[Rfam]
Nucleotides: 129
Base pairs, nucleotide, nucleotide: 012113013112014111018032019031020030034108035107036106037105038104043049050094051093052092058071059070060069061068074088075087076086077085
Number, partner (000 for none) and nucleotide at each position: 001000g002000g003000a004000a005000u006000u007000g008000c009000a010000u011000u012113g013112c014111c015000g016000a017000a018032u019031c020030u021000c022000c023000u024000a025000a026000a027000u028000g029000g030020a031019g032018a033000a034108c035107g036106g037105g038104g039000g040000a041000u042000u043049u044000c045000u046000c047000a048000u049043g050094g051093g052092g053000u054000g055000a056000a057000u058071c059070u060069c061068u062000u063000a064000u065000u066000u067000u068061a069060g070059a071058g072000u073000a074088g075087g076086g077085u078000g079000c080000c081000u082000u083000u084000a085077a086076c087075c088074c089000g090000a091000a092052u093051c094050c095000g096000u097000c098000a099000a100000c101000u102000a103000a104038c105037c106036u107035c108034g109000c110000a111014g112013g113012c114000u115000u116000a117000u118000a119000a120000a121000g122000g123000a124000g125000g126000a127000c128000u129000c